The family of this 37-nucleotide RNA from Nostoc minutum is "CRISPR RNA direct repeat element". Pairs were carried over by alignment from the consensus structure, which was predicted with WAR.

RNA sequence: ACUGACCAAACCUUAGAUGCCGCAAGGCGUUGAGCAC
Numbered sequence: 001a002c003u004g005a006c007c008a009a010a011c012c013u014u015a016g017a018u019g020c021c022g023c024a025a026g027g028c029g030u031u032g033a034g035c036a037c
Stems, first nucleotide, its partner, number of pairs: 016031006